[Rfam]
RNA sequence: GGUAUGUAUUUCAACCCCACAAAUAAGCCCCGGAAAGUCUUAUCUUGUGUUUUGAAAUAAAAU
Dot-bracket structure: ......(((((((....(((((.((((...........))))..)))))...)))))))....
The record is a 63-nucleotide RNA sequence from Metabacillus lacus, which matches "Ribosomal protein L13 leader" in Rfam. This family is a putative r-protein leader autoregulatory structure found in B. subtilis and other low-GC Gram-positive bacteria. It is located in the 5' untranslated regions of mRNAs encoding the L13-S9 (rplM-rpsI) ribosomal protein operon. The base pairs follow the family's consensus structure, which was predicted with CMfinder. It scores 51 bits against the family's covariance model. A reference for the family is Zengel and Lindahl (1994), "Diverse mechanisms for regulating ribosomal protein synthesis in Escherichia coli", Prog Nucleic Acid Res Mol Biol. The family's RNA type in Rfam is cis-regulatory leader. Its family is annotated with regulation of gene expression in the Gene Ontology.